[Rfam]
RNA: Group I catalytic intron
Organism: Thiohalobacter thiocyanaticus
RNA sequence: GCAGGGGACUCAUCACAAAGGUGCGUCUUCGCCGAAAGGCGGGGAAUGAACGGGAUGAAUUCAGGGAACCCGCAGCGGCGCGGCCGGCGGCAACCCUGAGCCAAGCCGGGGGUACACCCCCGGAAGGUGCAGAGACUACCUGGGGGCUUGAGCGCCCUUAAUCACAGGCAAGAGCGUCCCGCACCCUAACGACCCGGUCGAGGGUGGUGAGAUAGUCCGCUCCUGGGGGAAACCUCAGG
Numbered sequence: 001g002c003a004g005g006g007g008a009c010u011c012a013u014c015a016c017a018a019a020g021g022u023g024c025g026u027c028u029u030c031g032c033c034g035a036a037a038g039g040c041g042g043g044g045a046a047u048g049a050a051c052g053g054g055a056u057g058a059a060u061u062c063a064g065g066g067a068a069c070c071c072g073c074a075g076c077g078g079c080g081c082g083g084c085c086g087g088c089g090g091c092a093a094c095c096c097u098g099a100g101c102c103a104a105g106c107c108g109g110g111g112g113u114a115c116a117c118c119c120c121c122g123g124a125a126g127g128u129g130c131a132g133a134g135a136c137u138a139c140c141u142g143g144g145g146g147c148u149u150g151a152g153c154g155c156c157c158u159u160a161a162u163c164a165c166a167g168g169c170a171a172g173a174g175c176g177u178c179c180c181g182c183a184c185c186c187u188a189a190c191g192a193c194c195c196g197g198u199c200g201a202g203g204g205u206g207g208u209g210a211g212a213u214a215g216u217c218c219g220c221u222c223c224u225g226g227g228g229g230a231a232a233c234c235u236c237a238g239g
Base pairs, nucleotide, nucleotide: 005028007027008026009025011023012022013021030041031040032039051181052180053179054178056176057175061099062098063097064096065095066094070090071089072088073087100128101127132218134217135216136215137214138213184204185203186202187201224237225236226235227234228233